[Rfam]
This 249-nucleotide RNA from Paludifilum halophilum belongs to the Rfam family "T-box leader". The match comes from Rfam's covariance-model search (110 bits). NCBI's taxonomy places the organism under Bacteria, Bacillati, Bacilli, Thermoactinomycetaceae, Paludifilum. For this family Rfam cites "Interaction between the acceptor end of tRNA and the T box stimulates antitermination in the Bacillus subtilis tyrS gene: a new role for the discriminator base" (Grundy et al., J Bacteriol, 1994). Rfam links the family to the GO term tRNA binding.

RNA sequence: UUAGACGCGUUGAAGAGGGAAAGUAGUCGGCAGGGAGCGAUCCCAGAGAGCCGGUGGUCAGCUGUGAACCGGUAUCGCCCUGCUGUGCGAAUUACACCCUUGGAGCAGACGGCUGAAACCUUGGCGGUCAUAGGUCGGUCCGGAGCCCACCGAUAUCUGGAUGGCACGUCCCCCUUUCGGGGGCGUUACGAAGGUGGAAUCGUUCGGCGAUUCAAAAAGGGUGGUACCGCGAGACUCCUCGUCCCUUUA
Numbered sequence: 001u002u003a004g005a006c007g008c009g010u011u012g013a014a015g016a017g018g019g020a021a022a023g024u025a026g027u028c029g030g031c032a033g034g035g036a037g038c039g040a041u042c043c044c045a046g047a048g049a050g051c052c053g054g055u056g057g058u059c060a061g062c063u064g065u066g067a068a069c070c071g072g073u074a075u076c077g078c079c080c081u082g083c084u085g086u087g088c089g090a091a092u093u094a095c096a097c098c099c100u101u102g103g104a105g106c107a108g109a110c111g112g113c114u115g116a117a118a119c120c121u122u123g124g125c126g127g128u129c130a131u132a133g134g135u136c137g138g139u140c141c142g143g144a145g146c147c148c149a150c151c152g153a154u155a156u157c158u159g160g161a162u163g164g165c166a167c168g169u170c171c172c173c174c175u176u177u178c179g180g181g182g183g184c185g186u187u188a189c190g191a192a193g194g195u196g197g198a199a200u201c202g203u204u205c206g207g208c209g210a211u212u213c214a215a216a217a218a219g220g221g222u223g224g225u226a227c228c229g230c231g232a233g234a235c236u237c238c239u240c241g242u243c244c245c246u247u248u249a
Stems, first nucleotide, its partner, number of pairs: 007106002015101004026088002028085004039076003050073006109139002111136004141152003197213007218246004229242005
Dot-bracket structure: ......((......((((.......((((((.......(((........((((((............))))))))).....)))).)).........))))...))..((((((..................)))).)).(((......)))............................................(((((((...)))))))....((((.......(((((....)))))))))...